A member of the RNA family "Na+ riboswitch aptamer (DUF1646)" from Clostridium manihotivorum, 57 nucleotides long. The match comes from Rfam's covariance-model search (62 bits). The source organism's lineage runs through Bacteria, Bacillati, Clostridia, Clostridiaceae and Clostridium.

RNA sequence: GGUUGGGUAAAUUGAAAAAUUUACUUUCAAGCAAUUUAGUUUCUGGGGUGGGAAGCU
Numbered sequence: 001g002g003u004u005g006g007g008u009a010a011a012u013u014g015a016a017a018a019a020u021u022u023a024c025u026u027u028c029a030a031g032c033a034a035u036u037u038a039g040u041u042u043c044u045g046g047g048g049u050g051g052g053a054a055g056c057u
Stems, first nucleotide, its partner, number of pairs: 003030003006025006038057007

A reference for the family is White et al. (2022), "Na(+) riboswitches regulate genes for diverse physiological processes in bacteria", Nat Chem Biol. Its family is annotated with sodium ion binding and regulation of gene expression in the Gene Ontology.